The family of this 59-nucleotide sequence from Telmatospirillum siberiense is "Xanthine riboswitch aptamer (NMT1 RNA)".
The match comes from Rfam's covariance-model search (47 bits).
Lineage of the source: Bacteria > Pseudomonadati > Alphaproteobacteria > Rhodospirillales > Telmatospirillum.
Its family is annotated with purine nucleobase binding in the Gene Ontology.
[Rfam]
Nucleotides: 059
Base pairs, nucleotide, nucleotide: 006054007053008052009051010050015044018046019045021042022041023040024039027036028035029034
Number, partner (000 for none) and nucleotide at each position: 001000a002000u003000c004000c005000c006054g007053a008052g009051u010050a011000g012000a013000a014000g015044c016000g017000g018046u019045u020000a021042g022041c023040g024039g025000a026000g027036c028035u029034u030000c031000a032000c033000g034029a035028a036027g037000g038000c039024c040023c041022g042021c043000g044015g045019g046018a047000c048000a049000u050010u051009g052008c053007u054006c055000c056000a057000a058000u059000c